[Rfam]
RNA sequence: CCCUCCUAAAAAGGUGUGUCUGUAGUUCCCUGUCUUUGGACACGUAAGAAUUGGCGGCAAAGAAAUGUGAAUUUGGAGAAUUUUCUGUCUGGGGCCAGCUUGCGCCCUGCAAACUCAAGAUGAACCAACAAACAGAG
Numbered sequence: 001c002c003c004u005c006c007u008a009a010a011a012a013g014g015u016g017u018g019u020c021u022g023u024a025g026u027u028c029c030c031u032g033u034c035u036u037u038g039g040a041c042a043c044g045u046a047a048g049a050a051u052u053g054g055c056g057g058c059a060a061a062g063a064a065a066u067g068u069g070a071a072u073u074u075g076g077a078g079a080a081u082u083u084u085c086u087g088u089c090u091g092g093g094g095c096c097a098g099c100u101u102g103c104g105c106c107c108u109g110c111a112a113a114c115u116c117a118a119g120a121u122g123a124a125c126c127a128a129c130a131a132a133c134a135g136a137g
Base pairs, nucleotide, nucleotide: 002057003056005054006053015044016043017042018041019040020039021038025029073127097115098114100112101111102110103109